[Rfam]
RNA sequence: CACCGACAUCAAGGAUUCGUUCUUAGAACCCUGCCCAACCGCCAGAUAGGCAUUCAUGCCCAGCUCUUUCAUCUGCUGUUCGCCGAUGACGCGGGUGGUGAUGUUGGUGCUAAAGGCAUCUGCCAGUUGGCGAGCUUGAGAAGCCAAGUAAGCCGCGUUACAGAUGUUUGGUGGCAUGUUGCUGAGGUCUUUCGC
Numbered sequence: 001c002a003c004c005g006a007c008a009u010c011a012a013g014g015a016u017u018c019g020u021u022c023u024u025a026g027a028a029c030c031c032u033g034c035c036c037a038a039c040c041g042c043c044a045g046a047u048a049g050g051c052a053u054u055c056a057u058g059c060c061c062a063g064c065u066c067u068u069u070c071a072u073c074u075g076c077u078g079u080u081c082g083c084c085g086a087u088g089a090c091g092c093g094g095g096u097g098g099u100g101a102u103g104u105u106g107g108u109g110c111u112a113a114a115g116g117c118a119u120c121u122g123c124c125a126g127u128u129g130g131c132g133a134g135c136u137u138g139a140g141a142a143g144c145c146a147a148g149u150a151a152g153c154c155g156c157g158u159u160a161c162a163g164a165u166g167u168u169u170g171g172u173g174g175c176a177u178g179u180u181g182c183u184g185a186g187g188u189c190u191u192u193c194g195c
Stems, first nucleotide, its partner, number of pairs: 005189003012032003016028003033043001035041001050059002062077003078135010091123007099112002102109002136163003140159002143156002167186006
Shown here is a 195-nucleotide sequence from Ewingella americana, a member of the family "Yersinia sRNA 276". The source organism's lineage runs through Bacteria, Enterobacterales, Yersiniaceae, Ewingella and Ewingella americana. By type it is an antisense RNA.